Nucleotides: 181
Stems, first nucleotide, its partner, number of pairs: 006176006016083005023076002032068008087117005093112005118145007126138004147166007
Number, partner (000 for none) and nucleotide at each position: 001000a002000g003000u004000g005000a006176g007175g008174a009173u010172a011171g012000a013000g014000g015000c016083g017082c018081a019080a020079a021000g022000a023076c024075c025000a026000u027000u028000a029000g030000u031000a032068c033067a034066c035065a036064g037063u038062u039061g040000g041000a042000g043000g044000a045000u046000a047000a048000u049000g050000a051000g052000g053000u054000c055000c056000u057000g058000g059000g060000a061039u062038a063037a064036u065035u066034g067033u068032g069000g070000a071000a072000a073000g074000g075024g076023g077000a078000a079020u080019u081018u082017g083016c084000c085000g086000a087117a088116g089115c090114u091113u092000u093112u094111a095110a096109g097108a098000a099000u100000c101000u102000c103000a104000u105000u106000u107000g108097u109096c110095u111094u112093a113091g114090g115089g116088c117087u118145g119144g120143u121142u122141c123140u124139g125000c126138u127137a128136u129135u130000g131000a132000a133000u134000a135129a136128a137127u138126a139124c140123a141122g142121a143120a144119c145118u146000g147166u148165c149164a150163u151162a152161u153160a154000g155000g156000g157000a158000a159000c160153u161152a162151u163150a164149u165148g166147g167000a168000g169000g170000g171011c172010u173009a174008u175007c176006u177000u178000a179000c180000g181000c
A member of the RNA family "Lysine riboswitch aptamer" from Bacillus sp. MUM 116, 181 nucleotides long. Riboswitches are metabolite binding domains within certain messenger RNAs that serve as precision sensors for their corresponding targets. The literature on the family includes a 2003 paper in Genes Dev by Sudarsan et al., "An mRNA structure in bacteria that controls gene expression by binding lysine". The match comes from Rfam's covariance-model search (122 bits).